[Rfam]
RNA sequence: UACCACUUAAGGCAUACUCACUGUGAAGUGGGGGCGCAAAGUGACAGUACAAGUAUACUUGUAGGCUGCAUUGCUGAG
Numbered sequence: 001u002a003c004c005a006c007u008u009a010a011g012g013c014a015u016a017c018u019c020a021c022u023g024u025g026a027a028g029u030g031g032g033g034g035c036g037c038a039a040a041g042u043g044a045c046a047g048u049a050c051a052a053g054u055a056u057a058c059u060u061g062u063a064g065g066c067u068g069c070a071u072u073g074c075u076g077a078g
Stems, first nucleotide, its partner, number of pairs: 012037002017032006040072004045068003048063006

A member of the RNA family "c-di-GMP-I riboswitch aptamer" from Paraferrimonas haliotis, 78 nucleotides long.